[Rfam]
MIR394 microRNA precursor family: a 111-nucleotide RNA from Ensete ventricosum. The literature on the family includes a 2006 paper in Genome Res by Lu et al., "MicroRNAs and other small RNAs enriched in the Arabidopsis RNA-dependent RNA polymerase-2 mutant". Rfam 15.1 lists 724 matches to the family in 216 species. Pairs were carried over by alignment from the consensus structure, which was predicted with WAR. It scores 81 bits against the family's covariance model. Taxonomically the source falls in Ensete (Eukaryota, Viridiplantae, Streptophytina, commelinids).
RNA sequence: CUUGCAGAGGUCAUUGGCAUUCUGUCCACCUCCAUCCACCACUUGUAUCUCUCAUCAACAAGGACAAUCAUAUAGAUGGAGGUGGGCAUCCUGCCAACUGAACUCUGUUAG
Numbered sequence: 001c002u003u004g005c006a007g008a009g010g011u012c013a014u015u016g017g018c019a020u021u022c023u024g025u026c027c028a029c030c031u032c033c034a035u036c037c038a039c040c041a042c043u044u045g046u047a048u049c050u051c052u053c054a055u056c057a058a059c060a061a062g063g064a065c066a067a068u069c070a071u072a073u074a075g076a077u078g079g080a081g082g083u084g085g086g087c088a089u090c091c092u093g094c095c096a097a098c099u100g101a102a103c104u105c106u107g108u109u110a111g
Base pairs, nucleotide, nucleotide: 011101014097015096016095017094018093019092023088024087025086026085027084028083029082030081031080032079033078